DUF3800-IX RNA: a 70-nucleotide RNA sequence. Rfam's curators write: Actinobacteria, Firmicutes (1 example), Nitrospirae, Proteobacteria, Verrucomicrobia (1 example).
RNA sequence: GCUCUUGCCGUCCGAAUCGGCACCCUUUUGGUGUACAUGCCUGCUAGCCGGGCUAGGCGGCAGAGCGCCU
Numbered sequence: 001g002c003u004c005u006u007g008c009c010g011u012c013c014g015a016a017u018c019g020g021c022a023c024c025c026u027u028u029u030g031g032u033g034u035a036c037a038u039g040c041c042u043g044c045u046a047g048c049c050g051g052g053c054u055a056g057g058c059g060g061c062a063g064a065g066c067g068c069c070u
Stems, first nucleotide, its partner, number of pairs: 001066004006062004012057002019036001021033004039053005
The base pairs follow the family's consensus structure, which is taken from published work.